[Rfam]
Nucleotides: 045
Base pairs, nucleotide, nucleotide: 002019003018005016024041025040026039027038028037029036
Number, partner (000 for none) and nucleotide at each position: 001000a002019g003018u004000u005016u006000a007000g008000u009000c010000u011000c012000c013000u014000a015000a016005a017000u018003a019002c020000a021000a022000u023000u024041g025040g026039c027038c028037c029036u030000u031000a032000u033000u034000a035000u036029a037028g038027g039026g040025c041024u042000u043000u044000u045000u
This 45-nucleotide RNA from Streptococcus pneumoniae belongs to the Rfam family "Streptococcus sRNA SpF51". Rfam classes the family as a small RNA. The sequence is in the family's curated seed alignment. NCBI's taxonomy places the organism under Bacteria, Bacillota, Bacilli, Lactobacillales, Streptococcus pneumoniae.